[Rfam]
Notes:
A member of the RNA family "Archaeal small subunit ribosomal RNA" from Acidianus manzaensis, 358 nucleotides of a longer RNA. The family is grouped with related families in Rfam's "SSU clan". The family has 86 seed sequences and 709 matches in Rfam 15.1. The family's consensus secondary structure is taken from published work. A reference for the family is Yusupov et al. (2001), "Crystal structure of the ribosome at 5.5 A resolution", Science. Lineage of the source: Archaea > Thermoproteati > Thermoprotei > Sulfolobales > Acidianus.
RNA sequence: GGCUUAAAGCGCCCGUAGCCGGCCCUAAAAGUCACUGCUUAAAGCCCCGGGCUCAACCCGGGAAAGGGCAGUGAUACUAUAGGGCUAGGGGGCGGGAGAGGCCGGAGGUACUCCCAGAGUAGGGGCGAAAUCCACAGAUCCUGGGAGGACCACCAGUGGCGAAAGCGUCCGGCCAGAACGCGCCCGACGGUGAGGGGCGAAAGCCGGGGUAGCAAAAGGGAUUAGAUACCCCUGUAGUCCCGGCUGUAGACGAUGCACGCUAGGUGUCGCGUAGGCUUCGGGCCUGCGCGGUGCCGCAGGGAGACUGGUAAGCCUGCCGCCUGGGGAGUAUGCCUGCAAGGGCGAAACUUAAAGGAAU
Numbered sequence: 001g002g003c004u005u006a007a008a009g010c011g012c013c014c015g016u017a018g019c020c021g022g023c024c025c026u027a028a029a030a031g032u033c034a035c036u037g038c039u040u041a042a043a044g045c046c047c048c049g050g051g052c053u054c055a056a057c058c059c060g061g062g063a064a065a066g067g068g069c070a071g072u073g074a075u076a077c078u079a080u081a082g083g084g085c086u087a088g089g090g091g092g093c094g095g096g097a098g099a100g101g102c103c104g105g106a107g108g109u110a111c112u113c114c115c116a117g118a119g120u121a122g123g124g125g126c127g128a129a130a131u132c133c134a135c136a137g138a139u140c141c142u143g144g145g146a147g148g149a150c151c152a153c154c155a156g157u158g159g160c161g162a163a164a165g166c167g168u169c170c171g172g173c174c175a176g177a178a179c180g181c182g183c184c185c186g187a188c189g190g191u192g193a194g195g196g197g198c199g200a201a202a203g204c205c206g207g208g209g210u211a212g213c214a215a216a217a218g219g220g221a222u223u224a225g226a227u228a229c230c231c232c233u234g235u236a237g238u239c240c241c242g243g244c245u246g247u248a249g250a251c252g253a254u255g256c257a258c259g260c261u262a263g264g265u266g267u268c269g270c271g272u273a274g275g276c277u278u279c280g281g282g283c284c285u286g287c288g289c290g291g292u293g294c295c296g297c298a299g300g301g302a303g304a305c306u307g308g309u310a311a312g313c314c315u316g317c318c319g320c321c322u323g324g325g326g327a328g329u330a331u332g333c334c335u336g337c338a339a340g341g342g343c344g345a346a347a348c349u350u351a352a353a354g355g356a357a358u
Stems, first nucleotide, its partner, number of pairs: 001321003009318001011198004016192001018191003022085006030078002032074009046062006089185003092181003100174007107151002111147007122133003159166002203244006212238002217233004255317003259313002263295014299306002323350003332343004